Rfam assigns this 160-nucleotide sequence from Pelotomaculum schinkii to the family "c-di-AMP riboswitch aptamer (ydaO/yuaA leader)". A search with the family's covariance model found it, with a score of 99 bits.
RNA sequence: ACUCCAUAUUCGCUUAAUUCUUCUUUAGGAGAAGCGGGGGAACCAAUUUCCGGGGGUGAAUCGAUAGUCGGCCGGACUUCAACCGGUUGCCGGCAUCGUAGGGCUACUCUUUCGGCCCGAAUCCGUCAGCUAACUUCGUAGGCGUUGAAAGGGAGGAAAC
Numbered sequence: 001a002c003u004c005c006a007u008a009u010u011c012g013c014u015u016a017a018u019u020c021u022u023c024u025u026u027a028g029g030a031g032a033a034g035c036g037g038g039g040g041a042a043c044c045a046a047u048u049u050c051c052g053g054g055g056g057u058g059a060a061u062c063g064a065u066a067g068u069c070g071g072c073c074g075g076a077c078u079u080c081a082a083c084c085g086g087u088u089g090c091c092g093g094c095a096u097c098g099u100a101g102g103g104c105u106a107c108u109c110u111u112u113c114g115g116c117c118c119g120a121a122u123c124c125g126u127c128a129g130c131u132a133a134c135u136u137c138g139u140a141g142g143c144g145u146u147g148a149a150a151g152g153g154a155g156g157a158a159a160c
Base pairs, nucleotide, nucleotide: 011144012143013142014141018033019032020031021030022029034139035138036137037136038135039134044053054124055123056122062098063097064096065095101118102117103116104115